[Rfam]
RNA sequence: UGAUGCCCAACGUGUGGCUGGACACUGGGGGCAUCUCAUGAGGGAGACAACAGAAAAAGGAAGGCAUGCACUUGUUCAAUUUCGAGCAGUUCGGAGACACGCCUCAGGAGCCUGCCGUGACAGAACCGAAGGUAAGUUGUGCCAUCCGAUCAUGGUGUAAGAAUUGAGCCAGCAUCAGAUUUAUGUCAAGCAAUUGAGAGAGGCUCUAAAGACACGAGGAGUAAAGGUUAAGACUGUGGAUUUAUUUGAUUUCUUUGAUUUUGUAAAGGACAUUUGUCCCU
Numbered sequence: 001u002g003a004u005g006c007c008c009a010a011c012g013u014g015u016g017g018c019u020g021g022a023c024a025c026u027g028g029g030g031g032c033a034u035c036u037c038a039u040g041a042g043g044g045a046g047a048c049a050a051c052a053g054a055a056a057a058a059g060g061a062a063g064g065c066a067u068g069c070a071c072u073u074g075u076u077c078a079a080u081u082u083c084g085a086g087c088a089g090u091u092c093g094g095a096g097a098c099a100c101g102c103c104u105c106a107g108g109a110g111c112c113u114g115c116c117g118u119g120a121c122a123g124a125a126c127c128g129a130a131g132g133u134a135a136g137u138u139g140u141g142c143c144a145u146c147c148g149a150u151c152a153u154g155g156u157g158u159a160a161g162a163a164u165u166g167a168g169c170c171a172g173c174a175u176c177a178g179a180u181u182u183a184u185g186u187c188a189a190g191c192a193a194u195u196g197a198g199a200g201a202g203g204c205u206c207u208a209a210a211g212a213c214a215c216g217a218g219g220a221g222u223a224a225a226g227g228u229u230a231a232g233a234c235u236g237u238g239g240a241u242u243u244a245u246u247u248g249a250u251u252u253c254u255u256u257g258a259u260u261u262u263g264u265a266a267a268g269g270a271c272a273u274u275u276g277u278c279c280c281u
Stems, first nucleotide, its partner, number of pairs: 006031003012025003036050001039047001086133002091129002098123001103119001105117001107115001140159003146155003165208002168204003215257007225243005266281001268279004
Source information
The record is a 281-nucleotide sequence from Nannospalax galili, which matches "Mason-Pfizer monkey virus packaging signal" in Rfam. It is annotated as a cis-regulatory element. A reference for the family is Mustafa et al. (2004), "Mutational analysis of the predicted secondary RNA structure of the Mason-Pfizer monkey virus packaging signal", Virus Res. The match comes from Rfam's covariance-model search (162 bits). The family's consensus secondary structure was predicted with PFOLD.